[Rfam]
RNA sequence: CGCUUAUCAAGAAAGGCAGAGGGAAAUGGCCCGAUGAAGCCUUGACAACCUGUUUUCCACCUCAAAAUGGAAAGUAAGGUGCCAAAUCCAGCCCGCAAACGGAAUCCGGUUGCAGGGGAGAUAAGUC
Numbered sequence: 001c002g003c004u005u006a007u008c009a010a011g012a013a014a015g016g017c018a019g020a021g022g023g024a025a026a027u028g029g030c031c032c033g034a035u036g037a038a039g040c041c042u043u044g045a046c047a048a049c050c051u052g053u054u055u056u057c058c059a060c061c062u063c064a065a066a067a068u069g070g071a072a073a074g075u076a077a078g079g080u081g082c083c084a085a086a087u088c089c090a091g092c093c094c095g096c097a098a099a100c101g102g103a104a105u106c107c108g109g110u111u112g113c114a115g116g117g118g119a120g121a122u123a124a125g126u127c
Base pairs, nucleotide, nucleotide: 002126003125004124005123006122007121008120013043014042015041016040017039021032022031023030027090028089029088044083046081047080049079050078053073054072055071056070057069087119092116093115095113096112097111
RNA: SAM riboswitch aptamer (S box leader)